RNA: Glycine riboswitch aptamer
Organism: Devosia sp. MC521
RNA sequence: AACACUCUGGAAAGCGAAUUGGCCGAGCCAAUUCCACCGAAGGAGCAACUGGCGCUCAGCCAGGAAAUCUCUCAGGGCAAGGACAGAGGGGGCACG
Numbered sequence: 001a002a003c004a005c006u007c008u009g010g011a012a013a014g015c016g017a018a019u020u021g022g023c024c025g026a027g028c029c030a031a032u033u034c035c036a037c038c039g040a041a042g043g044a045g046c047a048a049c050u051g052g053c054g055c056u057c058a059g060c061c062a063g064g065a066a067a068u069c070u071c072u073c074a075g076g077g078c079a080a081g082g083a084c085a086g087a088g089g090g091g092g093c094a095c096g
Stems, first nucleotide, its partner, number of pairs: 003090001005088005016034004037076002039073002043071003049064002